The family of this 87-nucleotide sequence from Alkalibaculum sporogenes is "c-di-GMP-I riboswitch aptamer". A search with the family's covariance model found it, with a score of 64 bits. Gene Ontology term of the family: cyclic-di-GMP binding.

RNA sequence: UAGAGAGAAAGGCAAAAUCAUUGAAAGAUGAUAAUACGCAAAGCUAAAGGGGCUAAGGAAAUUUUUCUAUGUCAGCCAGCUACCGUC
Number, nucleotide and partner (000 for none) at each position: 001u000002a000003g000004a000005g000006a000007g000008a000009a000010a000011g000012g039013c038014a000015a000016a000017a032018u031019c030020a029021u028022u027023g000024a000025a000026a000027g022028a021029u020030g019031a018032u017033a000034a000035u000036a000037c000038g013039c012040a000041a000042a081043g080044c079045u078046a000047a000048a000049g077050g076051g073052g072053c071054u000055a000056a000057g000058g067059a066060a065061a000062u000063u000064u000065u060066u059067c058068u000069a000070u000071g053072u052073c051074a000075g000076c050077c049078a045079g044080c043081u042082a000083c000084c000085g000086u000087c000